[Rfam]
RNA sequence: UUGACCGAGGAUCGCCCCCCGUCAGCGCGGAUGCGCCCACGGGGGCGAUUGGC
Numbered sequence: 001u002u003g004a005c006c007g008a009g010g011a012u013c014g015c016c017c018c019c020c021g022u023c024a025g026c027g028c029g030g031a032u033g034c035g036c037c038c039a040c041g042g043g044g045g046c047g048a049u050u051g052g053c
Stems, first nucleotide, its partner, number of pairs: 016045007025036004
This 53-nucleotide RNA sequence from Flavimaricola marinus belongs to the Rfam family "ffh sRNA". The literature on the family includes a 2009 paper in BMC Genomics by Meyer et al., "Identification of candidate structured RNAs in the marine organism 'Candidatus Pelagibacter ubique'".